[Rfam]
ASpks TB sRNA: a 69-nucleotide RNA from Amycolatopsis jiangsuensis. Taxonomically the source falls in Amycolatopsis (Bacteria, Bacillati, Actinomycetota, Actinomycetes). A search with the family's covariance model found it, with a score of 79 bits. The family's RNA type in Rfam is antisense RNA.
Nucleotides: 069
Stems, first nucleotide, its partner, number of pairs: 015025003028065001030063001032059002037054003041050003
Number, partner (000 for none) and nucleotide at each position: 001000u002000u003000u004000c005000a006000g007000c008000g009000a010000g011000c012000c013000g014000a015025g016024c017023c018000a019000c020000a021000g022000c023017g024016g025015c026000c027000g028065c029000u030063c031000g032059c033058g034000g035000u036000c037054c038053u039052g040000g041050c042049c043048g044000u045000a046000g047000g048043u049042g050041g051000c052039c053038a054037g055000c056000a057000g058033c059032g060000c061000c062000u063030g064000u065028g066000c067000c068000u069000c